[Rfam]
RNA sequence: GCCGAGCUAUGUAACAAGAGCUUGUAACCCAAGUGGGGGCAUGAAGGUGAUGGAACAACUUUGUGGCUCCCUAGUUGGAGAUGUGGUUGCUAAAAGCUGGCUUGUCCAUUCCAAGUUAAGAGUUGGGUAAUGGGACUUAUGUGAAGGCAUAGGUGUCAUCUCCCUUAGACAAGAAGGAACUGCGUGAGGCUGGUUUCACAGAGCAACGAUUACCUCUACCUCCUAAUAGUGGAGGGAUAACAAGCUAUCGCAUCCUCCCUCCAAAGAAUAACUCGGAUUGCCACCCUUGCUUGGACCAUCUCUUUU
Numbered sequence: 001g002c003c004g005a006g007c008u009a010u011g012u013a014a015c016a017a018g019a020g021c022u023u024g025u026a027a028c029c030c031a032a033g034u035g036g037g038g039g040c041a042u043g044a045a046g047g048u049g050a051u052g053g054a055a056c057a058a059c060u061u062u063g064u065g066g067c068u069c070c071c072u073a074g075u076u077g078g079a080g081a082u083g084u085g086g087u088u089g090c091u092a093a094a095a096g097c098u099g100g101c102u103u104g105u106c107c108a109u110u111c112c113a114a115g116u117u118a119a120g121a122g123u124u125g126g127g128u129a130a131u132g133g134g135a136c137u138u139a140u141g142u143g144a145a146g147g148c149a150u151a152g153g154u155g156u157c158a159u160c161u162c163c164c165u166u167a168g169a170c171a172a173g174a175a176g177g178a179a180c181u182g183c184g185u186g187a188g189g190c191u192g193g194u195u196u197c198a199c200a201g202a203g204c205a206a207c208g209a210u211u212a213c214c215u216c217u218a219c220c221u222c223c224u225a226a227u228a229g230u231g232g233a234g235g236g237a238u239a240a241c242a243a244g245c246u247a248u249c250g251c252a253u254c255c256u257c258c259c260u261c262c263a264a265a266g267a268a269u270a271a272c273u274c275g276g277a278u279u280g281c282c283a284c285c286c287u288u289g290c291u292u293g294g295a296c297c298a299u300c301u302c303u304u305u306u
Stems, first nucleotide, its partner, number of pairs: 001040003004023005010017001028037003043306005049300005056293002059289001063284005070276002073273004077262004083256001085254001088252002091250001098247008106236002109234005115227004120222003125164003130159004135154008172217003176213001183208003190201003
RNA: Plant signal recognition particle RNA
Organism: Vigna angularis